[Rfam]
RNA sequence: CCAGAAAAGUUAAAGUUAGCUUUUAAGAGUAGGCUAAAAGUGUCCUGCUAGUGGACCUACCUCGCUAUGGUGAGAGGUAGUGGUACCGCGAGACCGUCAAAUUGCGGGGAGUUCCUUAGAGCCUUUGCUACCGUCUUGCAGUGGAAACACUGUACAGUACACCAGGGUAAUGACCUCGGGCAUGGUAAUAACGCAAAGGAUUGGAUAAUCCGCAGCCAAGUUCUAAGUGUUUCGCAAGAAGCAUAUGAAUGCAGUUCAACGACUAAAUGGUGGUCGGCUAGAGUGAAAUAUUCUCUGGCUUAAGAUAGAGUCUGGCCCUCCAGAAAUGGAGUC
Numbered sequence: 001c002c003a004g005a006a007a008a009g010u011u012a013a014a015g016u017u018a019g020c021u022u023u024u025a026a027g028a029g030u031a032g033g034c035u036a037a038a039a040g041u042g043u044c045c046u047g048c049u050a051g052u053g054g055a056c057c058u059a060c061c062u063c064g065c066u067a068u069g070g071u072g073a074g075a076g077g078u079a080g081u082g083g084u085a086c087c088g089c090g091a092g093a094c095c096g097u098c099a100a101a102u103u104g105c106g107g108g109g110a111g112u113u114c115c116u117u118a119g120a121g122c123c124u125u126u127g128c129u130a131c132c133g134u135c136u137u138g139c140a141g142u143g144g145a146a147a148c149a150c151u152g153u154a155c156a157g158u159a160c161a162c163c164a165g166g167g168u169a170a171u172g173a174c175c176u177c178g179g180g181c182a183u184g185g186u187a188a189u190a191a192c193g194c195a196a197a198g199g200a201u202u203g204g205a206u207a208a209u210c211c212g213c214a215g216c217c218a219a220g221u222u223c224u225a226a227g228u229g230u231u232u233c234g235c236a237a238g239a240a241g242c243a244u245a246u247g248a249a250u251g252c253a254g255u256u257c258a259a260c261g262a263c264u265a266a267a268u269g270g271u272g273g274u275c276g277g278c279u280a281g282a283g284u285g286a287a288a289u290a291u292u293c294u295c296u297g298g299c300u301u302a303a304g305a306u307a308g309a310g311u312c313u314g315g316c317c318c319u320c321c322a323g324a325a326a327u328g329g330a331g332u333c
Base pairs, nucleotide, nucleotide: 005024006023007022008021009020010019011018012017028035029034092275093274094273095272096271098269099268103214104213105212106211107210108209113205114204115203215255216254220250221249222248223247228243229242230241231240232239259313261312262311263310264309277299278298279297280296281295282294283293285291318331319330320329321328322327